[Rfam]
RNA sequence: GAAGAGCCCUACAUGAAAGGAGAAGCUGCUCCAUUGUGGCCCCGAGUCAUGCGCGGGCAAAAUCGUGAGGUUGCACGUGAAGCGUUGACAGGGGGAAGCGCAGGCCAGCCAUUGAGCUCCGAAAUAACCCGUUUGGGGUGCCAACCCUGUACAACGUGGGGGAAGGCAACACGGCAUGAGACGCUAGACAGCGAGUCACAUGUCGGCCCUGCGGAGUCAGAGACCC
Numbered sequence: 001g002a003a004g005a006g007c008c009c010u011a012c013a014u015g016a017a018a019g020g021a022g023a024a025g026c027u028g029c030u031c032c033a034u035u036g037u038g039g040c041c042c043c044g045a046g047u048c049a050u051g052c053g054c055g056g057g058c059a060a061a062a063u064c065g066u067g068a069g070g071u072u073g074c075a076c077g078u079g080a081a082g083c084g085u086u087g088a089c090a091g092g093g094g095g096a097a098g099c100g101c102a103g104g105c106c107a108g109c110c111a112u113u114g115a116g117c118u119c120c121g122a123a124a125u126a127a128c129c130c131g132u133u134u135g136g137g138g139u140g141c142c143a144a145c146c147c148u149g150u151a152c153a154a155c156g157u158g159g160g161g162g163a164a165g166g167c168a169a170c171a172c173g174g175c176a177u178g179a180g181a182c183g184c185u186a187g188a189c190a191g192c193g194a195g196u197c198a199c200a201u202g203u204c205g206g207c208c209c210u211g212c213g214g215a216g217u218c219a220g221a222g223a224c225c226c
Stems, first nucleotide, its partner, number of pairs: 012038005019032004025192001027191001040094004046089004050084002052079004057074003062071003113220001114218001116217006134211006140167003145161004172205007180197003
The record is a 226-nucleotide RNA from Olavius sp. associated proteobacterium Delta 1, which matches "Group II catalytic intron D1-D4-6" in Rfam. It scores 163 bits against the family's covariance model. Rfam's curators write: Group II introns are found in rRNA, tRNA and mRNA of organelles in fungi, plants and protists, and also in mRNA in bacteria. The literature on the family includes a 2001 paper in Trends Genet by Bonen and Vogel, "The ins and outs of group II introns". The base pairs follow the family's consensus structure. The organism belongs to Deltaproteobacteria, within Bacteria.